Shown here is a 62-nucleotide RNA from Varanus komodoensis, a member of the family "Small nucleolar RNA Z39". It scores 67 bits against the family's covariance model. The organism belongs to Varanus, within Eukaryota.

RNA sequence: GUACAAAUGAUGAGAACAUAACAGUAUGAAUGAUGAUGAUACUGUAAACGCUUUCUGAUGUA
Numbered sequence: 001g002u003a004c005a006a007a008u009g010a011u012g013a014g015a016a017c018a019u020a021a022c023a024g025u026a027u028g029a030a031u032g033a034u035g036a037u038g039a040u041a042c043u044g045u046a047a048a049c050g051c052u053u054u055c056u057g058a059u060g061u062a
Stems, first nucleotide, its partner, number of pairs: 002062004012054002015052001017050001022044006

Its family is annotated with nucleolus and RNA processing in the Gene Ontology. By type it is a C/D-box small nucleolar RNA.